[Rfam]
RNA sequence: AAAUGUAGUUGACUAUAAGUAUACAUGGAACUUAACGUAUACUAAGUACACUACGUUUUC
Numbered sequence: 001a002a003a004u005g006u007a008g009u010u011g012a013c014u015a016u017a018a019g020u021a022u023a024c025a026u027g028g029a030a031c032u033u034a035a036c037g038u039a040u041a042c043u044a045a046g047u048a049c050a051c052u053a054c055g056u057u058u059u060c
Stems, first nucleotide, its partner, number of pairs: 001058009012047003018043007
The family of this 60-nucleotide RNA sequence from Chanos chanos is "mir-728 microRNA precursor family". The family has 4 seed sequences and 193 matches in Rfam 15.1. The family's consensus secondary structure was predicted with RNAalifold.